[Rfam]
RNA sequence: AUGGCCAUGAUGAUUGGCGCAGGGGUACGGACCUCAGCUAGAUCAUGGGAGCUGAAUGCAAAUUGCUGAUUCAGUGCAGCUGGCGUGUGGCUGGCUCUCUGGAAAGGUGUUUGCAUGAGAACUUCGCCAGGAACUGAGCCAU
Numbered sequence: 001a002u003g004g005c006c007a008u009g010a011u012g013a014u015u016g017g018c019g020c021a022g023g024g025g026u027a028c029g030g031a032c033c034u035c036a037g038c039u040a041g042a043u044c045a046u047g048g049g050a051g052c053u054g055a056a057u058g059c060a061a062a063u064u065g066c067u068g069a070u071u072c073a074g075u076g077c078a079g080c081u082g083g084c085g086u087g088u089g090g091c092u093g094g095c096u097c098u099c100u101g102g103a104a105a106g107g108u109g110u111u112u113g114c115a116u117g118a119g120a121a122c123u124u125c126g127c128c129a130g131g132a133a134c135u136g137a138g139c140c141a142u
Stems, first nucleotide, its partner, number of pairs: 001142005
Dot-bracket structure: (((((....................................................................................................................................)))))
The record is a 142-nucleotide RNA sequence from Nothoprocta perdicaria, which matches "Small nucleolar RNA SNORD94" in Rfam. A reference for the family is Galardi et al. (2002), "Purified box C/D snoRNPs are able to reproduce site-specific 2'-O-methylation of target RNA in vitro", Mol Cell Biol. It is annotated as a C/D-box small nucleolar RNA. The base pairs follow the family's consensus structure, which was predicted with RNAalifold. The organism belongs to Nothoprocta, within Eukaryota.